About this RNA
The family of this 86-nucleotide RNA sequence from Callosobruchus maculatus is "mir-276 microRNA precursor family". Its family is annotated with RISC complex and miRNA-mediated post-transcriptional gene silencing in the Gene Ontology.
Nucleotides: 086
Base pairs, nucleotide, nucleotide: 012076013075014074017071018070019069020068022066023065024064025063026062028060029059030058031057032056033055034054035053036052037051
Number, partner (000 for none) and nucleotide at each position: 001000u002000u003000c004000u005000a006000g007000g008000u009000u010000g011000a012076c013075c014074a015000g016000u017071a018070g019069c020068g021000a022066g023065g024064u025063a026062u027000a028060g029059a030058g031057u032056u033055c034054c035053u036052a037051c038000g039000u040000g041000a042000u043000c044000u045000u046000u047000g048000a049000u050000u051037g052036u053035a054034g055033g056032a057031a058030c059029u060028u061000c062026a063025u064024a065023c066022c067000g068020u069019g070018c071017u072000c073000u074014u075013g076012g077000g078000u079000a080000c081000g082000c083000c084000u085000u086000a
The match comes from Rfam's covariance-model search (78 bits). The base pairs follow the family's consensus structure, which was predicted with RNAalifold.